RNA sequence: CUUGACGGCGCCGAGCAGCAGGGGCCGGUCCGCCGGCCGGCCCUGGCCGUAGGUGGCCAGCACGGCGUGGGCCUC
Numbered sequence: 001c002u003u004g005a006c007g008g009c010g011c012c013g014a015g016c017a018g019c020a021g022g023g024g025c026c027g028g029u030c031c032g033c034c035g036g037c038c039g040g041c042c043c044u045g046g047c048c049g050u051a052g053g054u055g056g057c058c059a060g061c062a063c064g065g066c067g068u069g070g071g072c073c074u075c
Stems, first nucleotide, its partner, number of pairs: 015025002031071001033069001038065001043060003047056003
RNA: ASpks TB sRNA